[Rfam]
RNA: Fluoride riboswitch aptamer (crcB RNA motif)
RNA sequence: AUCGGUAUGGGUGAUGGCGUCCACCUUCAACCGCCGCUAAGGCUGAUGACGCCUGUUCUCAG
Numbered sequence: 001a002u003c004g005g006u007a008u009g010g011g012u013g014a015u016g017g018c019g020u021c022c023a024c025c026u027u028c029a030a031c032c033g034c035c036g037c038u039a040a041g042g043c044u045g046a047u048g049a050c051g052c053c054u055g056u057u058c059u060c061a062g
Stems, first nucleotide, its partner, number of pairs: 010025004016053006033043003